[Rfam]
RNA sequence: AACCGACAUUAGCGAUUCGUUUUGCGAACCCGCGCCAACCGCCAGAUAGGAGUGCAUGCCGAGUUCUUUCAUCUGCUGUUCGCCAAUCACGCGGGUCACCACGUUUUUGCUGAACGAGUCGGCCAGCUGGCGCGCCUGGGAGGCGAGAUACGCCGCGUUACAGAUAUUCGGCGGCAUAUUGCCUAAAUCUUUCGC
Numbered sequence: 001a002a003c004c005g006a007c008a009u010u011a012g013c014g015a016u017u018c019g020u021u022u023u024g025c026g027a028a029c030c031c032g033c034g035c036c037a038a039c040c041g042c043c044a045g046a047u048a049g050g051a052g053u054g055c056a057u058g059c060c061g062a063g064u065u066c067u068u069u070c071a072u073c074u075g076c077u078g079u080u081c082g083c084c085a086a087u088c089a090c091g092c093g094g095g096u097c098a099c100c101a102c103g104u105u106u107u108u109g110c111u112g113a114a115c116g117a118g119u120c121g122g123c124c125a126g127c128u129g130g131c132g133c134g135c136c137u138g139g140g141a142g143g144c145g146a147g148a149u150a151c152g153c154c155g156c157g158u159u160a161c162a163g164a165u166a167u168u169c170g171g172c173g174g175c176a177u178a179u180u181g182c183c184u185a186a187a188u189c190u191u192u193c194g195c
Stems, first nucleotide, its partner, number of pairs: 005189002014030001016028005034042002050059001062077003078135002081132005087126001091123002094120003099112001102109002136163003140159002143156003167186002170183003